Rfam assigns this 102-nucleotide RNA from Handroanthus impetiginosus to the family "Small nucleolar RNA snoR99". A reference for the family is Marker et al. (2002), "Experimental RNomics: identification of 140 candidates for small non-messenger RNAs in the plant Arabidopsis thaliana", Curr Biol. The base pairs follow the family's consensus structure, which was predicted with WAR. The match comes from Rfam's covariance-model search (61 bits).
[Rfam]
RNA sequence: UAGCUUGAGGGAUGAACAAGUCCCACAGAUUUUCUUAAUCCAUUCUAUCUUAGCUAGCAUUUGCCCUGAAUUUUUUGCUGGCCAUGCGCGGAUGGAAAAUUA
Numbered sequence: 001u002a003g004c005u006u007g008a009g010g011g012a013u014g015a016a017c018a019a020g021u022c023c024c025a026c027a028g029a030u031u032u033u034c035u036u037a038a039u040c041c042a043u044u045c046u047a048u049c050u051u052a053g054c055u056a057g058c059a060u061u062u063g064c065c066c067u068g069a070a071u072u073u074u075u076u077g078c079u080g081g082c083c084a085u086g087c088g089c090g091g092a093u094g095g096a097a098a099a100u101u102a
Stems, first nucleotide, its partner, number of pairs: 039096006053082007